[Rfam]
RNA sequence: UGCCAAUGCUAAGUACUAGUGCCGCAGGAGGUUCCUUGUUCAACCCCUCCUGCUGUUCGAGUGCUUAAUAUCACAU
Numbered sequence: 001u002g003c004c005a006a007u008g009c010u011a012a013g014u015a016c017u018a019g020u021g022c023c024g025c026a027g028g029a030g031g032u033u034c035c036u037u038g039u040u041c042a043a044c045c046c047c048u049c050c051u052g053c054u055g056u057u058c059g060a061g062u063g064c065u066u067a068a069u070a071u072c073a074c075a076u
Stems, first nucleotide, its partner, number of pairs: 006071002010067008019058001024053007